Notes
mir-156 microRNA precursor family: an 86-nucleotide sequence from Panicum miliaceum. The family's consensus secondary structure was predicted with PFOLD. Gene Ontology terms of the family: RISC complex and miRNA-mediated post-transcriptional gene silencing. A reference for the family is Reinhart et al. (2002), "MicroRNAs in plants", Genes Dev. This family represents the plant microRNA (miRNA) precursor mir-156.
[Rfam]
RNA sequence: UUGACAGAAGAGAGUGAGCACACGCGGUGGUUUCUUAGCAUGAGUGCCAUGCUGGGAGCUGUGCGUGCUCACUCUCUAUCUGUCAA
Numbered sequence: 001u002u003g004a005c006a007g008a009a010g011a012g013a014g015u016g017a018g019c020a021c022a023c024g025c026g027g028u029g030g031u032u033u034c035u036u037a038g039c040a041u042g043a044g045u046g047c048c049a050u051g052c053u054g055g056g057a058g059c060u061g062u063g064c065g066u067g068c069u070c071a072c073u074c075u076c077u078a079u080c081u082g083u084c085a086a
Stems, first nucleotide, its partner, number of pairs: 001086008010076012023063003